[Rfam]
RNA sequence: GCAACGGGUCACUAGGGUUCCGGUCUGCCACGGCAGACGACUGGUCCGAGAGCGACCGACCACCACUGACGGUUCACACCCUCUGGCGGUUACACGGCGGGAUAAAAGCCCGGGAGGC
Numbered sequence: 001g002c003a004a005c006g007g008g009u010c011a012c013u014a015g016g017g018u019u020c021c022g023g024u025c026u027g028c029c030a031c032g033g034c035a036g037a038c039g040a041c042u043g044g045u046c047c048g049a050g051a052g053c054g055a056c057c058g059a060c061c062a063c064c065a066c067u068g069a070c071g072g073u074u075c076a077c078a079c080c081c082u083c084u085g086g087c088g089g090u091u092a093c094a095c096g097g098c099g100g101g102a103u104a105a106a107a108g109c110c111c112g113g114g115a116g117g118c
Stems, first nucleotide, its partner, number of pairs: 007057004012052001015047002020044002022041001023038006058091004063086003093113001095116001099111003
Dot-bracket structure: ......((((.(..((...(((((((((....))))))..).)).))....).))))((((.(((..................))).)))).(.[...(((.......))).)..]..

Guanidine-I riboswitch aptamer: a 118-nucleotide sequence from Acerihabitans arboris.
Taxonomically the source falls in Acerihabitans (Bacteria, Pseudomonadota, Gammaproteobacteria, Enterobacterales).
Rfam describes the family as follows. This family represents a conserved RNA structure found upstream of the ykkC and yxkD genes in Bacillus subtilis and related genes in other bacteria.